[Rfam]
RNA sequence: UUGGAGGAAUAAGAAAGUAGAGCCAGUCAAAUCAAUUGGCUUUAUUGAUACUGUCCUCCUAAAUUAAAUGGCAAUGGAACAAGGUCUGGUCUACAAGAUGUACCUAGACUUUACUGCAGUCUGCCAACAAUA
Numbered sequence: 001u002u003g004g005a006g007g008a009a010u011a012a013g014a015a016a017g018u019a020g021a022g023c024c025a026g027u028c029a030a031a032u033c034a035a036u037u038g039g040c041u042u043u044a045u046u047g048a049u050a051c052u053g054u055c056c057u058c059c060u061a062a063a064u065u066a067a068a069u070g071g072c073a074a075u076g077g078a079a080c081a082a083g084g085u086c087u088g089g090u091c092u093a094c095a096a097g098a099u100g101u102a103c104c105u106a107g108a109c110u111u112u113a114c115u116g117c118a119g120u121c122u123g124c125c126a127a128c129a130a131u132a
Stems, first nucleotide, its partner, number of pairs: 003059006010050002018044007025036001027034001070125004075118002081112008
The record is a 132-nucleotide sequence from Pogona vitticeps, which matches "Small Cajal body specific RNA 15" in Rfam. The family is grouped with related families in Rfam's "SCARNA4 clan". The source organism's lineage runs through Eukaryota, Squamata, Unidentata, Agamidae and Pogona. A search with the family's covariance model found it, with a score of 72 bits. scaRNAs are a specific class of small nuclear RNAs which localise to the Cajal bodies and guide the modification of RNA polymerase II transcribed spliceosomal RNAs U1, U2, U4, U5 and U12. ACA45 belongs to the H/ACA box class of guide RNAs as it has the predicted hairpin-hinge-hairpin-tail structure, the conserved H/ACA-box motifs and is found associated with GAR1. ACA45 is predicted to guide the pseudouridylation of residue U37 of the U2 spliceosomal snRNA. Its family is annotated with Cajal body, RNA processing and nucleolus in the Gene Ontology. For this family Rfam cites "Cajal body-specific small nuclear RNAs: a novel class of 2'-O-methylation and pseudouridylation guide RNAs" (Darzacq et al., EMBO J, 2002).